[Rfam]
RNA sequence: UGACCAGGGGGCCUGGCGGCUCUGAAUGUGUCAGGUUCGAAGCGGUCUAGGGGUACAGGGAGUACCUCCGCGCAGGGCCGGGUCAGGCAGCAG
Number, nucleotide and partner (000 for none) at each position: 001u085002g084003a083004c082005c081006a000007g000008g000009g000010g079011g078012c077013c076014u000015g047016g046017c045018g000019g000020c042021u041022c000023u039024g038025a037026a036027u035028g000029u000030g000031u000032c000033a000034g000035g027036u026037u025038c024039g023040a000041a021042g020043c000044g000045g017046u016047c015048u000049a000050g068051g067052g066053g065054u064055a063056c062057a000058g000059g000060g000061a000062g056063u055064a054065c053066c052067u051068c050069c000070g000071c000072g000073c000074a000075g000076g013077g012078c011079c010080g000081g005082g004083u003084c002085a001086g000087g000088c000089a000090g000091c000092a000093g000
This 93-nucleotide RNA sequence from Pseudomonas cavernae belongs to the Rfam family "ivy-DE RNA".
The family's consensus secondary structure is taken from published work.
The organism belongs to Pseudomonas, within Bacteria.